Notes
Shown here is a 590-nucleotide part of an RNA from Gracilinema caldarium, a member of the family "Bacterial large subunit ribosomal RNA". Rfam links the family to the GO terms structural constituent of ribosome and ribosome. Lineage of the source: Bacteria > Pseudomonadati > Spirochaetia > Breznakiellaceae > Gracilinema caldarium. The match comes from Rfam's covariance-model search (2773 bits).
RNA sequence: GAAGACGGGUUCAUAGGUGGAUGCCUAGGAGUCGCGAGGCGAAGAAGGCCGUGGUAAGCUGCGAAAAGCCAGGUGGAGGAGCACACAUCCCGAGAUGCCUGGAUAGCCGAAUGGGGUAACCCGGCAGACGAGAGUCUGUCAUCCGACCGCUGAAUAGAUAGGCGGCGGAAGCGAAACUGGGGGAACUGAACCAUCUCACGUACCCCGGGAAGAGAAAUCAACAGCAUCGCAAGAUGCACGAGAUUCCGAAAGUAGCGGCGAGCGAAAUCGGAAGAGCCUAAACCAGCUUUAGCUGGGGUUGUAGGGCCGCAUGGGCGCAAGCCGCGGAGGUGAAAAAUCAUAUCUAUAGUGGAACGGUUCUGGGAAGGCCGGCCAGAGAGGGUGAAAGCCCCGUAGACGAAAUGGAUAUGACUCCGUGAUGCGGUACCUGAGUACGGCGAGGCACGAGAAACCUUGUCGGAAUCUGGGUCGACCACGAUCCAAGGCUAAAUACUCCGCGACUACCGAUAGUGCAGAAGUACCGUGAGGGAAAGGCGAAAAGAACCCCGGUGAGGGGAGUGAAAGAGAACCUGAAACCAUGAACCCACAAC
Numbered sequence: 001g002a003a004g005a006c007g008g009g010u011u012c013a014u015a016g017g018u019g020g021a022u023g024c025c026u027a028g029g030a031g032u033c034g035c036g037a038g039g040c041g042a043a044g045a046a047g048g049c050c051g052u053g054g055u056a057a058g059c060u061g062c063g064a065a066a067a068g069c070c071a072g073g074u075g076g077a078g079g080a081g082c083a084c085a086c087a088u089c090c091c092g093a094g095a096u097g098c099c100u101g102g103a104u105a106g107c108c109g110a111a112u113g114g115g116g117u118a119a120c121c122c123g124g125c126a127g128a129c130g131a132g133a134g135u136c137u138g139u140c141a142u143c144c145g146a147c148c149g150c151u152g153a154a155u156a157g158a159u160a161g162g163c164g165g166c167g168g169a170a171g172c173g174a175a176a177c178u179g180g181g182g183g184a185a186c187u188g189a190a191c192c193a194u195c196u197c198a199c200g201u202a203c204c205c206c207g208g209g210a211a212g213a214g215a216a217a218u219c220a221a222c223a224g225c226a227u228c229g230c231a232a233g234a235u236g237c238a239c240g241a242g243a244u245u246c247c248g249a250a251a252g253u254a255g256c257g258g259c260g261a262g263c264g265a266a267a268u269c270g271g272a273a274g275a276g277c278c279u280a281a282a283c284c285a286g287c288u289u290u291a292g293c294u295g296g297g298g299u300u301g302u303a304g305g306g307c308c309g310c311a312u313g314g315g316c317g318c319a320a321g322c323c324g325c326g327g328a329g330g331u332g333a334a335a336a337a338u339c340a341u342a343u344c345u346a347u348a349g350u351g352g353a354a355c356g357g358u359u360c361u362g363g364g365a366a367g368g369c370c371g372g373c374c375a376g377a378g379a380g381g382g383u384g385a386a387a388g389c390c391c392c393g394u395a396g397a398c399g400a401a402a403u404g405g406a407u408a409u410g411a412c413u414c415c416g417u418g419a420u421g422c423g424g425u426a427c428c429u430g431a432g433u434a435c436g437g438c439g440a441g442g443c444a445c446g447a448g449a450a451a452c453c454u455u456g457u458c459g460g461a462a463u464c465u466g467g468g469u470c471g472a473c474c475a476c477g478a479u480c481c482a483a484g485g486c487u488a489a490a491u492a493c494u495c496c497g498c499g500a501c502u503a504c505c506g507a508u509a510g511u512g513c514a515g516a517a518g519u520a521c522c523g524u525g526a527g528g529g530a531a532a533g534g535c536g537a538a539a540a541g542a543a544c545c546c547c548g549g550u551g552a553g554g555g556g557a558g559u560g561a562a563a564g565a566g567a568a569c570c571u572g573a574a575a576c577c578a579u580g581a582a583c584c585c586a587c588a589a590c
Base pairs, nucleotide, nucleotide: 007585008584009583010582011581012580013579014578016577017576023570024534025533028505029504030502031501032500033499034498035497036496037494038493039172040171047108048107049106050063051062052061069102070101071100072099073098074097075096078090079089080088113122114121115120123140124139125138126137127136128135129134142169143168144167145166147165148164149163150162151161177208178207179206180205181204182203188195189194218241219240244490245272246271247270248269249268255263256262275487276486277485278484283296284295285294286293287292303429304428305427308423309422310421311420312419336413338411339410340409341408342407343406344405345404346403347402349398350397355371356370357369358368360367374378380392381391382390435459436458437457438456439455440454441453442452466481467480468479469478470477521528522527544556545555546554547553